Overview: The record is a 92-nucleotide RNA from Asparagus officinalis, which matches "mir-160 microRNA precursor family" in Rfam. Rfam links the family to the GO terms miRNA-mediated post-transcriptional gene silencing and RISC complex. The match comes from Rfam's covariance-model search (80 bits).
RNA sequence: GAAUGCCUGGCUCCCUGUAUGCCACACGUGUGCACUAAUUCUUGCUGCUUGAAUUUGGUUACUGCGGGUGGCGUGCGAGGAGCCAAGCAUUC
Numbered sequence: 001g002a003a004u005g006c007c008u009g010g011c012u013c014c015c016u017g018u019a020u021g022c023c024a025c026a027c028g029u030g031u032g033c034a035c036u037a038a039u040u041c042u043u044g045c046u047g048c049u050u051g052a053a054u055u056u057g058g059u060u061a062c063u064g065c066g067g068g069u070g071g072c073g074u075g076c077g078a079g080g081a082g083c084c085a086a087g088c089a090u091u092c
Base pairs, nucleotide, nucleotide: 001092002091003090004089005088006087008085009084010083011082012081013080014079016077017076018075019074020073021072022071023070024069027066028065029064